Bacterial small signal recognition particle RNA: a 92-nucleotide RNA from Neisseria gonorrhoeae. The signal recognition particle (SRP) is a universally conserved ribonucleoprotein involved in the co-translational targeting of proteins to membranes. NCBI's taxonomy places the organism under Bacteria, Pseudomonadota, Betaproteobacteria, Neisseriales, Neisseria gonorrhoeae. The family's RNA type in Rfam is non-coding RNA gene.
[Rfam]
RNA sequence: GCGGGUCUCCCCGCAUGGCAAAUCGGAACACCGGGUCAGGGGCGGAAGCCAGCAGCCCACUCCGAUGCGCCAGUGCCGGGGGUUUGGUCCGC
Numbered sequence: 001g002c003g004g005g006u007c008u009c010c011c012c013g014c015a016u017g018g019c020a021a022a023u024c025g026g027a028a029c030a031c032c033g034g035g036u037c038a039g040g041g042g043c044g045g046a047a048g049c050c051a052g053c054a055g056c057c058c059a060c061u062c063c064g065a066u067g068c069g070c071c072a073g074u075g076c077c078g079g080g081g082g083u084u085u086g087g088u089c090c091g092c
Stems, first nucleotide, its partner, number of pairs: 003090005008082006014073001016072004022066006033058004041050003